Shown here is a 121-nucleotide RNA sequence from Myotis myotis, a member of the family "Small nucleolar RNA SNORA61". It scores 78 bits against the family's covariance model. From the family's description: ACA61 is a member of the H/ACA class of snoRNA that guide the sites of modification of uridines to pseudouridines.

RNA sequence: UUUUUCAAAAUGCUGACACGCAUCGGAUCUGAACACCGAUCUUGGUGGUCGUAGAGGAGGAAAAGUAAUAGUGAAGCUGGCCUCACAGUGCCUACAGUCUGUGGGCUAGUUUCAAACAAGG
Numbered sequence: 001u002u003u004u005u006c007a008a009a010a011u012g013c014u015g016a017c018a019c020g021c022a023u024c025g026g027a028u029c030u031g032a033a034c035a036c037c038g039a040u041c042u043u044g045g046u047g048g049u050c051g052u053a054g055a056g057g058a059g060g061a062a063a064a065g066u067a068a069u070a071g072u073g074a075a076g077c078u079g080g081c082c083u084c085a086c087a088g089u090g091c092c093u094a095c096a097g098u099c100u101g102u103g104g105g106c107u108a109g110u111u112u113c114a115a116a117c118a119a120g121g
Base pairs, nucleotide, nucleotide: 003060004059005058006057021047022046023045024044026041027040028039029038077109078108079107080106081105082104083103